A member of the RNA family "c-di-AMP riboswitch aptamer (ydaO/yuaA leader)" from Saccharopolyspora elongata, 160 nucleotides long.
Taxonomically the source falls in Saccharopolyspora (Bacteria, Actinomycetota, Pseudonocardiales, Pseudonocardiaceae).
RNA sequence: GGCUUCCAGACCCCGAAACGAAAAAACCGGACAGGGGCGGGGGACCCAACACCCGGGCUCCCCGAAGCCCUAGGGGUGAAGCCGGCUCCCCCGAGCCGGCCGGGCUGCCUCUCAGCCCGAACCCGACAGCUGACCUCGCAGGCGCGGCAGGAGAGAGGAA
Numbered sequence: 001g002g003c004u005u006c007c008a009g010a011c012c013c014c015g016a017a018a019c020g021a022a023a024a025a026a027c028c029g030g031a032c033a034g035g036g037g038c039g040g041g042g043g044a045c046c047c048a049a050c051a052c053c054c055g056g057g058c059u060c061c062c063c064g065a066a067g068c069c070c071u072a073g074g075g076g077u078g079a080a081g082c083c084g085g086c087u088c089c090c091c092c093g094a095g096c097c098g099g100c101c102g103g104g105c106u107g108c109c110u111c112u113c114a115g116c117c118c119g120a121a122c123c124c125g126a127c128a129g130c131u132g133a134c135c136u137c138g139c140a141g142g143c144g145c146g147g148c149a150g151g152a153g154a155g156a157g158g159a160a
Base pairs, nucleotide, nucleotide: 004144006142007141011036012035013034037139038138039137040136041135042134047073074124075123076122082099083098084097085096102118103117104116105115
Dot-bracket structure: ...(.((...(((....................)))((((((....(.........................)(((.....((((..........))))..((((.........))))...))).........)))))).)).)................